[Rfam]
Record summary
Purine riboswitch aptamer: a 104-nucleotide RNA sequence from Geosporobacter ferrireducens. NCBI's taxonomy places the organism under Bacteria, Bacillota, Clostridia, Thermotaleaceae, Geosporobacter.
RNA sequence: ACUGAAAACAAAAAGUUUACUUAUAUAAAUCUGGCAAUAUGGGCUGGGUGUAUCUACCGAACUACCGUAAAAAGUUGUAGGCUAUAAGUGUUUUUCUUAUGAGU
Numbered sequence: 001a002c003u004g005a006a007a008a009c010a011a012a013a014a015g016u017u018u019a020c021u022u023a024u025a026u027a028a029a030u031c032u033g034g035c036a037a038u039a040u041g042g043g044c045u046g047g048g049u050g051u052a053u054c055u056a057c058c059g060a061a062c063u064a065c066c067g068u069a070a071a072a073a074g075u076u077g078u079a080g081g082c083u084a085u086a087a088g089u090g091u092u093u094u095u096c097u098u099a100u101g102a103g104u
Stems, first nucleotide, its partner, number of pairs: 018090008029049007058080001060076004